[Rfam]
RNA sequence: GGCAGUUCUCAGGUGCUGCACUCUGGAAUCGGGCUCCCUCCUCUCUGGUUCUGGGUGCAUCACCUGAGAAUCACA
Numbered sequence: 001g002g003c004a005g006u007u008c009u010c011a012g013g014u015g016c017u018g019c020a021c022u023c024u025g026g027a028a029u030c031g032g033g034c035u036c037c038c039u040c041c042u043c044u045c046u047g048g049u050u051c052u053g054g055g056u057g058c059a060u061c062a063c064c065u066g067a068g069a070a071u072c073a074c075a
Stems, first nucleotide, its partner, number of pairs: 002074001005071011017059001019057005025052009
Dot-bracket structure: .(..(((((((((((.(.(((((.(((((((((..........)))))))))))))).).)))))))))))..).
RNA: mir-9223 microRNA precursor family